[Rfam]
RNA sequence: GCCGGUCCUCGGUUGUGGCUCUCGGGUUUCUUCCCGCGGGCUUCCAUCGAAGACCGGC
Number, nucleotide and partner (000 for none) at each position: 001g058002c057003c056004g055005g054006u053007c052008c000009u050010c049011g048012g047013u046014u000015g000016u000017g042018g041019c040020u039021c038022u000023c036024g035025g034026g033027u000028u000029u000030c000031u000032u000033c026034c025035c024036g023037c000038g021039g020040g019041c018042u017043u000044c000045c000046a013047u012048c011049g010050a009051a000052g007053a006054c005055c004056g003057g002058c001